[Rfam]
This 584-nucleotide part of an RNA from Rhodnius prolixus belongs to the Rfam family "Eukaryotic large subunit ribosomal RNA".
RNA sequence: CCCUCUGAAGUUUCCCUCAGGAUAGCUUGCACUCGGUUGAGACGAGUCUCAUCCGGUAGAGCGAAUGAUUAGAGGCAUUGGGGUCGAAACGACCUCAACCUAUUCUCAAACUCCAAAUAGAUGAGAUCCCCGGCUUUCUUAAAAGUGAAGCCGUGGGAAUAGGAUCAGAGUGCCAAGUGGGCCAAUUUUGGUAAGCAGAACUGGCGCUGUGGGAUGAACCAAACGCAGAGUUAAGGCGCCUAAAUUGACGCUCAUGUGAAACCAUGAAAGGCGUUGGUUGCUUAAGACAGCAGGACGGUGGCCAUGGAAGUUGGAAUCCGCUAAGGAGUGUGUAACAACUCACCUGCCGAAGCAACUAGCCCUGAAAAUGGAUGGCGCUGUAGCGUCGUGCCUAUACUCUGCCGUCAAUGACAAAGAUGAUUAAUAAGCUGUGUGUUAAUUAAUGUUGUAGUCUUGACUGCAGUAUUGUUAAUUACAAAGUUUAUUACUAUAUCAUCAUUAUGUCUUGAUGAGUAAGAGGGCCGCGGCGAUGAGCGCAGAAGGGUCUGGGCGAGAGCCCGCCUGGAGCCGUCGCUGGUGCAGAU
Numbered sequence: 001c002c003c004u005c006u007g008a009a010g011u012u013u014c015c016c017u018c019a020g021g022a023u024a025g026c027u028u029g030c031a032c033u034c035g036g037u038u039g040a041g042a043c044g045a046g047u048c049u050c051a052u053c054c055g056g057u058a059g060a061g062c063g064a065a066u067g068a069u070u071a072g073a074g075g076c077a078u079u080g081g082g083g084u085c086g087a088a089a090c091g092a093c094c095u096c097a098a099c100c101u102a103u104u105c106u107c108a109a110a111c112u113c114c115a116a117a118u119a120g121a122u123g124a125g126a127u128c129c130c131c132g133g134c135u136u137u138c139u140u141a142a143a144a145g146u147g148a149a150g151c152c153g154u155g156g157g158a159a160u161a162g163g164a165u166c167a168g169a170g171u172g173c174c175a176a177g178u179g180g181g182c183c184a185a186u187u188u189u190g191g192u193a194a195g196c197a198g199a200a201c202u203g204g205c206g207c208u209g210u211g212g213g214a215u216g217a218a219c220c221a222a223a224c225g226c227a228g229a230g231u232u233a234a235g236g237c238g239c240c241u242a243a244a245u246u247g248a249c250g251c252u253c254a255u256g257u258g259a260a261a262c263c264a265u266g267a268a269a270g271g272c273g274u275u276g277g278u279u280g281c282u283u284a285a286g287a288c289a290g291c292a293g294g295a296c297g298g299u300g301g302c303c304a305u306g307g308a309a310g311u312u313g314g315a316a317u318c319c320g321c322u323a324a325g326g327a328g329u330g331u332g333u334a335a336c337a338a339c340u341c342a343c344c345u346g347c348c349g350a351a352g353c354a355a356c357u358a359g360c361c362c363u364g365a366a367a368a369u370g371g372a373u374g375g376c377g378c379u380g381u382a383g384c385g386u387c388g389u390g391c392c393u394a395u396a397c398u399c400u401g402c403c404g405u406c407a408a409u410g411a412c413a414a415a416g417a418u419g420a421u422u423a424a425u426a427a428g429c430u431g432u433g434u435g436u437u438a439a440u441u442a443a444u445g446u447u448g449u450a451g452u453c454u455u456g457a458c459u460g461c462a463g464u465a466u467u468g469u470u471a472a473u474u475a476c477a478a479a480g481u482u483u484a485u486u487a488c489u490a491u492a493u494c495a496u497c498a499u500u501a502u503g504u505c506u507u508g509a510u511g512a513g514u515a516a517g518a519g520g521g522c523c524g525c526g527g528c529g530a531u532g533a534g535c536g537c538a539g540a541a542g543g544g545u546c547u548g549g550g551c552g553a554g555a556g557c558c559c560g561c562c563u564g565g566a567g568c569c570g571u572c573g574c575u576g577g578u579g580c581a582g583a584u
Stems, first nucleotide, its partner, number of pairs: 001521006011024001013022003027175001029173005047126007059114001060112002066108003071103001073101003078098006085091001128156002131153006181205004186200005210221003225402005231396001235392003244389001246388001249385003269363003273360010290347005296320003302314002321325001326341001330339002403511006410505003523579001525576008534568002542563002549558003

The family's consensus secondary structure is taken from published work. The family is grouped with related families in Rfam's "LSU clan". It scores 2967 bits against the family's covariance model. The organism belongs to Rhodnius, within Eukaryota.